RNA sequence: AGAGCACGCAGCGACUGGCGGCACAGGGAUGGUCGAACCAUCGGGGAGCUAGUCACGAGGAGUCGACCGCCUGGGCUCCCGCC
Dot-bracket structure: ...[[....[[[..[[(((((.......((((.....))))..]]..]]].]]......[[[[[..)))))..]]]]].....
RNA: ZMP/ZTP riboswitch aptamer (pfl RNA motif)